[Rfam]
RNA sequence: CCUCUCGUGGUUCGUGAACCUCCCACGCAAAAAAACUAAGGAAUU
Dot-bracket structure: .....(((((....[[......))))).........]].......